[Rfam]
RNA sequence: UGACGGAAGGGCACCAGGAGUGGAGGCUUAAUUUGACUCAAUACGGGAAACCUCACCAGGCCAAGGAUCUAAGACCGGAAGGAUUGACAGAUUGCUCUUUCUUGAUUUGGUGGAUGGUGGUGCGUUCUUUGUUGGUGGAGCGAUUUGUCUGAUUAAUUCCAAUAACGAACGAGAUCUUAGCCUGCUAAAGUAGGCGACCUUAUGGUAUGGCGAAGACCUCCGGCUUCGGUCGGUGGGUUUUUACUACCAACAUACAAACAAAUCUUCUUAGAGGGACAGGCAGCUUCUAGCCGCACGAGAUUGAGCAAUAAGGUCUGUGAUGCCUUUAGAUGUUCUGGAGUGUACGCAUGCUACACUGAAGGAAUCAGCGUGUGCCCUAGCCAAAAGACCCGGAUAACCUCCUUCGUGCUAGGGAUUGAGACUUGUUAAUUAUUCCCCAUAAACGAGGAAUUCCCAGUAAGCGCGAAUCAUAAGCUCGCAUUAAUUACGUCCCUUCCCUUUGUACACA
Numbered sequence: 001u002g003a004c005g006g007a008a009g010g011g012c013a014c015c016a017g018g019a020g021u022g023g024a025g026g027c028u029u030a031a032u033u034u035g036a037c038u039c040a041a042u043a044c045g046g047g048a049a050a051c052c053u054c055a056c057c058a059g060g061c062c063a064a065g066g067a068u069c070u071a072a073g074a075c076c077g078g079a080a081g082g083a084u085u086g087a088c089a090g091a092u093u094g095c096u097c098u099u100u101c102u103u104g105a106u107u108u109g110g111u112g113g114a115u116g117g118u119g120g121u122g123c124g125u126u127c128u129u130u131g132u133u134g135g136u137g138g139a140g141c142g143a144u145u146u147g148u149c150u151g152a153u154u155a156a157u158u159c160c161a162a163u164a165a166c167g168a169a170c171g172a173g174a175u176c177u178u179a180g181c182c183u184g185c186u187a188a189a190g191u192a193g194g195c196g197a198c199c200u201u202a203u204g205g206u207a208u209g210g211c212g213a214a215g216a217c218c219u220c221c222g223g224c225u226u227c228g229g230u231c232g233g234u235g236g237g238u239u240u241u242u243a244c245u246a247c248c249a250a251c252a253u254a255c256a257a258a259c260a261a262a263u264c265u266u267c268u269u270a271g272a273g274g275g276a277c278a279g280g281c282a283g284c285u286u287c288u289a290g291c292c293g294c295a296c297g298a299g300a301u302u303g304a305g306c307a308a309u310a311a312g313g314u315c316u317g318u319g320a321u322g323c324c325u326u327u328a329g330a331u332g333u334u335c336u337g338g339a340g341u342g343u344a345c346g347c348a349u350g351c352u353a354c355a356c357u358g359a360a361g362g363a364a365u366c367a368g369c370g371u372g373u374g375c376c377c378u379a380g381c382c383a384a385a386a387g388a389c390c391c392g393g394a395u396a397a398c399c400u401c402c403u404u405c406g407u408g409c410u411a412g413g414g415a416u417u418g419a420g421a422c423u424u425g426u427u428a429a430u431u432a433u434u435c436c437c438c439a440u441a442a443a444c445g446a447g448g449a450a451u452u453c454c455c456a457g458u459a460a461g462c463g464c465g466a467a468u469c470a471u472a473a474g475c476u477c478g479c480a481u482u483a484a485u486u487a488c489g490u491c492c493c494u495u496c497c498c499u500u501u502g503u504a505c506a507c508a
Base pairs, nucleotide, nucleotide: 001506002505003503004502005501007500008499009498010497011496013490014489017454018453019452020451021450022354024352025351026343027342032047033046034045035044056338057337058336059335060334062332074111075110076109077108086101087100089098090097091096116326117325119324120323121322122321124318126313127312131170132169133168135166136165137146138145139144150161151160176305177304178303179302181274182273183272185271186270187269188268192265193264194263277297280294281293283291284290358405359404360403361402362401363400372390376387378385412444417439418438420436460482461481463479464478465477466476
The family of this 508-nucleotide part of an RNA from Atta cephalotes is "Eukaryotic small subunit ribosomal RNA". The sequence is in the family's curated seed alignment. Taxonomically the source falls in Atta (Eukaryota, Pterygota, Neoptera, Apocrita). The family is grouped with related families in Rfam's "SSU clan". Rfam 15.1 lists 75,755 matches to the family in 2,556 species.